[Rfam]
RNA: TPP riboswitch aptamer (THI element)
RNA sequence: GUUUCACUUUAGGGGUGUCUGCAAUUUGCAGGCUGAGAUUUUACCCUCUGAACCUGAUCUAGUUCAUACUAGCGUAGGGAAAAGUAAGAUGACUUCU
Numbered sequence: 001g002u003u004u005c006a007c008u009u010u011a012g013g014g015g016u017g018u019c020u021g022c023a024a025u026u027u028g029c030a031g032g033c034u035g036a037g038a039u040u041u042u043a044c045c046c047u048c049u050g051a052a053c054c055u056g057a058u059c060u061a062g063u064u065c066a067u068a069c070u071a072g073c074g075u076a077g078g079g080a081a082a083a084g085u086a087a088g089a090u091g092a093c094u095u096c097u
Base pairs, nucleotide, nucleotide: 006085007084008083009082010081011047012046013045014044017033018032019031020030021029053078054077055076056075059072060071061070062069